[Rfam]
RNA sequence: GAGAACUGAUAACCCAAAGGGUGGAAUGACAGGGUAACGCCUGGAAACGCCCUCUCUGAUACUCCGAUUAGCAUUCAUCAUAUAGCAGAUAAGUGUUAAAAGCUCGGUGAAGUCGGCUGAAAGCUACCGUAAGUAUUCAUAAAGGAUACACGAAAUCUAUUCAGAGGUGAAUGGUGUAGCCUAUAGGUCGGGAGUCUAUAAA
Dot-bracket structure: .................((((((........(((.....))).....))))))((((......((((((((((((.(((........))).))))))))....))))......(((((....((((((((....((((.....))))..)))....(((((((....))))))).))))).....)))))))))........
Numbered sequence: 001g002a003g004a005a006c007u008g009a010u011a012a013c014c015c016a017a018a019g020g021g022u023g024g025a026a027u028g029a030c031a032g033g034g035u036a037a038c039g040c041c042u043g044g045a046a047a048c049g050c051c052c053u054c055u056c057u058g059a060u061a062c063u064c065c066g067a068u069u070a071g072c073a074u075u076c077a078u079c080a081u082a083u084a085g086c087a088g089a090u091a092a093g094u095g096u097u098a099a100a101a102g103c104u105c106g107g108u109g110a111a112g113u114c115g116g117c118u119g120a121a122a123g124c125u126a127c128c129g130u131a132a133g134u135a136u137u138c139a140u141a142a143a144g145g146a147u148a149c150a151c152g153a154a155a156u157c158u159a160u161u162c163a164g165a166g167g168u169g170a171a172u173g174g175u176g177u178a179g180c181c182u183a184u185a186g187g188u189c190g191g192g193a194g195u196c197u198a199u200a201a202a
Stems, first nucleotide, its partner, number of pairs: 018053006032042003054194004064107004068099008077090003114190005123180005128152003135147004157174007
This 202-nucleotide sequence from Lentibacillus populi belongs to the Rfam family "Group II catalytic intron D1-D4-5". It scores 183 bits against the family's covariance model. Gene Ontology term of the family: Group II intron splicing. NCBI's taxonomy places the organism under Bacteria, Bacillati, Caryophanales, Bacillaceae, Lentibacillus. The literature on the family includes a 2003 paper in Crit Rev Biochem Mol Biol by Lehmann and Schmidt, "Group II introns: structure and catalytic versatility of large natural ribozymes". About the family: Group II introns are found in rRNA, tRNA and mRNA of organelles in fungi, plants and protists, and also in mRNA in bacteria.